RNA: Interferon gamma 5' UTR regulatory element
Organism: Sciurus vulgaris
RNA sequence: CAUUGUUCUGAUUACCUCAGAUCAGCUAUGAGGAAGGAAAGAUCAGCCAAGUCCUCUGGGCCUGAUCAGAUUAAUGUAGGAGCUACUGAUUUUAACAUUCUCAAUCUAGCUCUCUCUAAAACAAUGAAGGACACAAGGUACAUCUUGGCUUUUCAGCUCUGCAUCAUU
Numbered sequence: 001c002a003u004u005g006u007u008c009u010g011a012u013u014a015c016c017u018c019a020g021a022u023c024a025g026c027u028a029u030g031a032g033g034a035a036g037g038a039a040a041g042a043u044c045a046g047c048c049a050a051g052u053c054c055u056c057u058g059g060g061c062c063u064g065a066u067c068a069g070a071u072u073a074a075u076g077u078a079g080g081a082g083c084u085a086c087u088g089a090u091u092u093u094a095a096c097a098u099u100c101u102c103a104a105u106c107u108a109g110c111u112c113u114c115u116c117u118a119a120a121a122c123a124a125u126g127a128a129g130g131a132c133a134c135a136a137g138g139u140a141c142a143u144c145u146u147g148g149c150u151u152u153u154c155a156g157c158u159c160u161g162c163a164u165c166a167u168u
Stems, first nucleotide, its partner, number of pairs: 008069007019113003025106001027104001031101004040092007050084003055080004120168002124164003129143001133139001147158004